This 106-nucleotide RNA sequence from Rhizobiales bacterium GAS113 belongs to the Rfam family "Glycine riboswitch aptamer".
[Rfam]
RNA sequence: CUCUGGAAAGUAGCCGGGUGCUUGCCCGGCUCACCGAAGGGGGCAAGCCCGUGAUCCCGCCAGGCUGCGGGGUUCCGGGUGAAAUCUCUCAGGUCUCGGGACAGAG
Numbered sequence: 001c002u003c004u005g006g007a008a009a010g011u012a013g014c015c016g017g018g019u020g021c022u023u024g025c026c027c028g029g030c031u032c033a034c035c036g037a038a039g040g041g042g043g044c045a046a047g048c049c050c051g052u053g054a055u056c057c058c059g060c061c062a063g064g065c066u067g068c069g070g071g072g073u074u075c076c077g078g079g080u081g082a083a084a085u086c087u088c089u090c091a092g093g094u095c096u097c098g099g100g101a102c103a104g105a106g
Stems, first nucleotide, its partner, number of pairs: 001106005012031004033094003036090002040088003047080005